[Rfam]
This 103-nucleotide RNA sequence from Brevibacterium mcbrellneri belongs to the Rfam family "TPP riboswitch aptamer (THI element)".
RNA sequence: GAUCCGCGACAGGGGAGCGCCAGAAGGGGCGCUGAGAGUGCUGAUGCAGACCCUCGAACCUGAUGCGGUUAGGACCGCCGAAGGGAGUCGAGUUUCUCUUUAC
Numbered sequence: 001g002a003u004c005c006g007c008g009a010c011a012g013g014g015g016a017g018c019g020c021c022a023g024a025a026g027g028g029g030c031g032c033u034g035a036g037a038g039u040g041c042u043g044a045u046g047c048a049g050a051c052c053c054u055c056g057a058a059c060c061u062g063a064u065g066c067g068g069u070u071a072g073g074a075c076c077g078c079c080g081a082a083g084g085g086a087g088u089c090g091a092g093u094u095u096c097u098c099u100u101u102a103c
Stems, first nucleotide, its partner, number of pairs: 007090004011054004017032005039048003059084003065078004
For this family Rfam cites "A conserved RNA structure (thi box) is involved in regulation of thiamin biosynthetic gene expression in bacteria" (Miranda-Rios et al., Proc Natl Acad Sci U S A, 2001). The base pairs follow the family's consensus structure, which is taken from published work. The source organism's lineage runs through Bacteria, Bacillati, Actinomycetes, Brevibacteriaceae and Brevibacterium mcbrellneri.